[Rfam]
RNA sequence: CUGCACUCGUAUUGUUGGCUACUCUUAUCUAUGAUAGUGUGGCCUCGAACAUGGGUGCACAAACUAAUAGCUGUUAAGUCAGCAGCGGCCAGACAACCGUAGAGAUGGAUCCACAGGUGAAUGGCAUUUGAUGCUGCUUGCCUACUGAUUCCAUCUUACAUUC
Numbered sequence: 001c002u003g004c005a006c007u008c009g010u011a012u013u014g015u016u017g018g019c020u021a022c023u024c025u026u027a028u029c030u031a032u033g034a035u036a037g038u039g040u041g042g043c044c045u046c047g048a049a050c051a052u053g054g055g056u057g058c059a060c061a062a063a064c065u066a067a068u069a070g071c072u073g074u075u076a077a078g079u080c081a082g083c084a085g086c087g088g089c090c091a092g093a094c095a096a097c098c099g100u101a102g103a104g105a106u107g108g109a110u111c112c113a114c115a116g117g118u119g120a121a122u123g124g125c126a127u128u129u130g131a132u133g134c135u136g137c138u139u140g141c142c143u144a145c146u147g148a149u150u151c152c153a154u155c156u157u158a159c160a161u162u163c
Stems, first nucleotide, its partner, number of pairs: 002059005009050002012048003017044006024037002102157008120139002124137002
Rfam assigns this 163-nucleotide RNA from Punica granatum to the family "small nucleolar RNA snoR143". For this family Rfam cites "Mining small RNA sequencing data: a new approach to identify small nucleolar RNAs in Arabidopsis" (Chen and Wu, Nucleic Acids Res, 2009). The family's RNA type in Rfam is H/ACA-box small nucleolar RNA. Lineage of the source: Eukaryota > Viridiplantae > Tracheophyta > malvids > Punica.